[Rfam]
RNA: SAM riboswitch aptamer (S box leader)
RNA sequence: UUCUUAUCGCGAGAGGUGGAGGGACUGGCCCGAUGAAACCCGGCAACCGUCCAGGCAUGGACAAGGUGCCAAUUCCUGCAAGGCGUAUCGUCUUGAGAGAUAAGAA
Numbered sequence: 001u002u003c004u005u006a007u008c009g010c011g012a013g014a015g016g017u018g019g020a021g022g023g024a025c026u027g028g029c030c031c032g033a034u035g036a037a038a039c040c041c042g043g044c045a046a047c048c049g050u051c052c053a054g055g056c057a058u059g060g061a062c063a064a065g066g067u068g069c070c071a072a073u074u075c076c077u078g079c080a081a082g083g084c085g086u087a088u089c090g091u092c093u094u095g096a097g098a099g100a101u102a103a104g105a106a
Stems, first nucleotide, its partner, number of pairs: 001106008013041001015040003021031003025078001027076002042070004047066002049062004074098001079095006